Small nucleolar RNA SNORA11: a 130-nucleotide RNA sequence from Sus scrofa. Rfam describes the family as follows. U107 (SNORA11) is a member of the H/ACA class of snoRNAs that guide the sites of modification of uridines to pseudouridines. This snoRNA was identified by RT-PCR from blood cells and its expression confirmed by Northern blot analysis. There is no predicted target for this guide snRNA. The match comes from Rfam's covariance-model search (106 bits). Pairs were carried over by alignment from the consensus structure, which was predicted with RNAalifold. By type it is an H/ACA-box small nucleolar RNA. Taxonomically the source falls in Sus (Eukaryota, Vertebrata, Euteleostomi, Eutheria). On this family, see Gu et al., Nucleic Acids Res 2005: "A novel experimental approach for systematic identification of box H/ACA snoRNAs from eukaryotes".

[Rfam]
RNA sequence: GGGGUGUGCUCAGAGCAAGGGGCAUGAAAAAAUGGCUCCUCUGUUGAUAACAUACACAAAAGGAAUCUGGGUUCAUUGUACAAAGGGGCAUAAAACUUGUGGCUUUCCUAUGAACAAAUGUCUAACAUGC
Dot-bracket structure: .(.(((((.....((((.(((((...........)).))).)))).....))))).)............((.(...(((...(.(((.(((((...))))).))).....)..)))...).)).......
Numbered sequence: 001g002g003g004g005u006g007u008g009c010u011c012a013g014a015g016c017a018a019g020g021g022g023c024a025u026g027a028a029a030a031a032a033u034g035g036c037u038c039c040u041c042u043g044u045u046g047a048u049a050a051c052a053u054a055c056a057c058a059a060a061a062g063g064a065a066u067c068u069g070g071g072u073u074c075a076u077u078g079u080a081c082a083a084a085g086g087g088g089c090a091u092a093a094a095a096c097u098u099g100u101g102g103c104u105u106u107c108c109u110a111u112g113a114a115c116a117a118a119u120g121u122c123u124a125a126c127a128u129g130c
Stems, first nucleotide, its partner, number of pairs: 002057001004055005014045004019040003022036002070123002073120001077116003083111001085105003089101005